[Rfam]
RNA sequence: UAUCGUGCCCGGGGUCGGUGAGAAUCCGAACCGGCGGUGAGAGUCCGCGAGCGCCAGGCGAAACCACAUCCGUGGGGCCGUCCGGUGCUGAUCCGGUGGAAUUCCGGAACCGACGGUCAUGGAGUGGGGUUCGCCCACGCUCCAGGAGUCCGGAUGAGAGGUGCACGCGU
Numbered sequence: 001u002a003u004c005g006u007g008c009c010c011g012g013g014g015u016c017g018g019u020g021a022g023a024a025u026c027c028g029a030a031c032c033g034g035c036g037g038u039g040a041g042a043g044u045c046c047g048c049g050a051g052c053g054c055c056a057g058g059c060g061a062a063a064c065c066a067c068a069u070c071c072g073u074g075g076g077g078c079c080g081u082c083c084g085g086u087g088c089u090g091a092u093c094c095g096g097u098g099g100a101a102u103u104c105c106g107g108a109a110c111c112g113a114c115g116g117u118c119a120u121g122g123a124g125u126g127g128g129g130u131u132c133g134c135c136c137a138c139g140c141u142c143c144a145g146g147a148g149u150c151c152g153g154a155u156g157a158g159a160g161g162u163g164c165a166c167g168c169g170u
Base pairs, nucleotide, nucleotide: 004167005166006165007164008163009161010160016028017027018026032112033111034048035047036046037045043110044109051088052087053086054085055084092108093107094106095105096104114152115151116150
The record is a 170-nucleotide sequence from Subtercola boreus, which matches "FMN riboswitch aptamer (RFN element)" in Rfam. The organism belongs to Subtercola, within Bacteria. A search with the family's covariance model found it, with a score of 73 bits.